[Rfam]
Group II catalytic intron D1-D4-5: a 222-nucleotide RNA sequence from Solibacillus sp. R5-41. Gene Ontology term of the family: Group II intron splicing. The pairing is the family consensus, mapped onto this sequence.

RNA sequence: GAGAACUGAUUUCUUGAUAGGUGGAAUGAUGGAGGAACGCCCUGAAACGCCUACUCUAAUACUCCGACAUGCUUUUACUAAGGUUAACUAGCGAAGUAUGAAGCUCGGUGAAGUCGGCAGAGAGAUACCGUCAUUUUACAAAGUGAACAAACCUUUCACACUGUAAAAAACGAAAGCUGUCUAGCGGUAGAUGGUGUGUCCUAUAUGCCGGGAGUCCAUAAA
Numbered sequence: 001g002a003g004a005a006c007u008g009a010u011u012u013c014u015u016g017a018u019a020g021g022u023g024g025a026a027u028g029a030u031g032g033a034g035g036a037a038c039g040c041c042c043u044g045a046a047a048c049g050c051c052u053a054c055u056c057u058a059a060u061a062c063u064c065c066g067a068c069a070u071g072c073u074u075u076u077a078c079u080a081a082g083g084u085u086a087a088c089u090a091g092c093g094a095a096g097u098a099u100g101a102a103g104c105u106c107g108g109u110g111a112a113g114u115c116g117g118c119a120g121a122g123a124g125a126u127a128c129c130g131u132c133a134u135u136u137u138a139c140a141a142a143g144u145g146a147a148c149a150a151a152c153c154u155u156u157c158a159c160a161c162u163g164u165a166a167a168a169a170a171c172g173a174a175a176g177c178u179g180u181c182u183a184g185c186g187g188u189a190g191a192u193g194g195u196g197u198g199u200c201c202u203a204u205a206u207g208c209c210g211g212g213a214g215u216c217c218a219u220a221a222a
Stems, first nucleotide, its partner, number of pairs: 018053006031043002034040001054214004064108004068100006075094002078091003115210005124200005129172003136168002176195008
From the family's description: Group II introns are found in rRNA, tRNA and mRNA of organelles in fungi, plants and protists, and also in mRNA in bacteria.